[Rfam]
RNA sequence: AUACUGUACUAGGGGAGUCAAUGUUAGUGACUGAGAGUAAGCUUUUAGUUUAGACCCUUCGAACCUGUACGUUGAUACGUGCGUAGGAAGAGUACUUAAAUGCGAGU
Number, nucleotide and partner (000 for none) at each position: 001a000002u000003a000004c000005u000006g095007u094008a093009c092010u091011a058012g057013g056014g055015g000016a000017g031018u030019c029020a028021a000022u000023g000024u000025u000026a000027g000028u020029g019030a018031c017032u000033g000034a000035g000036a000037g000038u052039a051040a050041g049042c048043u000044u000045u000046u000047a000048g042049u041050u040051u039052a038053g000054a000055c014056c013057c012058u011059u000060c000061g000062a000063a000064c087065c086066u085067g084068u081069a080070c079071g078072u000073u000074g000075a000076u000077a000078c071079g070080u069081g068082c000083g000084u067085a066086g065087g064088a000089a000090g000091a010092g009093u008094a007095c006096u000097u000098a000099a000100a000101u000102g000103c000104g000105a000106g000107u000
RNA: TPP riboswitch aptamer (THI element)